The record is a 69-nucleotide sequence from Actinophytocola xinjiangensis, which matches "ASpks TB sRNA" in Rfam. The family's consensus secondary structure is taken from published work. The match comes from Rfam's covariance-model search (60 bits).

RNA sequence: CUUCACCGAACCGACCAGCAGUGGCGUCGCCCGGUUCUGGCCGUAGGUGGCGAGCAGCGCCUGUGCCUC
Numbered sequence: 001c002u003u004c005a006c007c008g009a010a011c012c013g014a015c016c017a018g019c020a021g022u023g024g025c026g027u028c029g030c031c032c033g034g035u036u037c038u039g040g041c042c043g044u045a046g047g048u049g050g051c052g053a054g055c056a057g058c059g060c061c062u063g064u065g066c067c068u069c
Stems, first nucleotide, its partner, number of pairs: 015024003028065003032059002037054002041050003